[Rfam]
RNA sequence: GCUGUAAUGAUGAUAUCCAUGCGUGUCAACUGACUCCAGAGUCUCCUGUGCUCUUCUGCCACAUCUCUGCGUUCUGUUGGGGUGUGUGCAGGGUUUACAGCUCUCUGGGGGCAUGAUCUGACCUCACUGACCUGAACACAGC
Numbered sequence: 001g002c003u004g005u006a007a008u009g010a011u012g013a014u015a016u017c018c019a020u021g022c023g024u025g026u027c028a029a030c031u032g033a034c035u036c037c038a039g040a041g042u043c044u045c046c047u048g049u050g051c052u053c054u055u056c057u058g059c060c061a062c063a064u065c066u067c068u069g070c071g072u073u074c075u076g077u078u079g080g081g082g083u084g085u086g087u088g089c090a091g092g093g094u095u096u097a098c099a100g101c102u103c104u105c106u107g108g109g110g111g112c113a114u115g116a117u118c119u120g121a122c123c124u125c126a127c128u129g130a131c132c133u134g135a136a137c138a139c140a141g142c
Stems, first nucleotide, its partner, number of pairs: 001142004046100005051093002
RNA: Small nucleolar RNA SNORD10
Organism: Hemibagrus wyckioides